[Rfam]
RNA: M-box riboswitch aptamer (ykoK leader)
RNA sequence: UGAAUGACUUGUUAGGUGAGGCUCCUAUACAAACACAGGCUGCUGCUCAGAUUUGUCGAAAGACAGUAAUGGGUAGAACAGGGAUUGCCGAAUUAAGGCUUUUCAAAAAGCAGCUAAAAGCACCGCUUUUUACGUUGUAUAGUGCUAAAACUCAACGAAGAGAAAACUG
Numbered sequence: 001u002g003a004a005u006g007a008c009u010u011g012u013u014a015g016g017u018g019a020g021g022c023u024c025c026u027a028u029a030c031a032a033a034c035a036c037a038g039g040c041u042g043c044u045g046c047u048c049a050g051a052u053u054u055g056u057c058g059a060a061a062g063a064c065a066g067u068a069a070u071g072g073g074u075a076g077a078a079c080a081g082g083g084a085u086u087g088c089c090g091a092a093u094u095a096a097g098g099c100u101u102u103u104c105a106a107a108a109a110g111c112a113g114c115u116a117a118a119a120g121c122a123c124c125g126c127u128u129u130u131u132a133c134g135u136u137g138u139a140u141a142g143u144g145c146u147a148a149a150a151c152u153c154a155a156c157g158a159a160g161a162g163a164a165a166a167c168u169g
Stems, first nucleotide, its partner, number of pairs: 005165001008162003011156002013096001015152003020146003025142008039114005045074005054065004082104003087099003116130003